[Rfam]
RNA sequence: GCGUCGGACGUCUCCUCCCAUUGCGUCCGGCGCGUUCCCCUCUGGAGGUUACAGACCUUCACGCUUGGCCGGGCUUAACAGUCCGGCCUUU
Dot-bracket structure: (((((.(((...............))).))))).........(((((((.....))))))).......((((((......)))))).....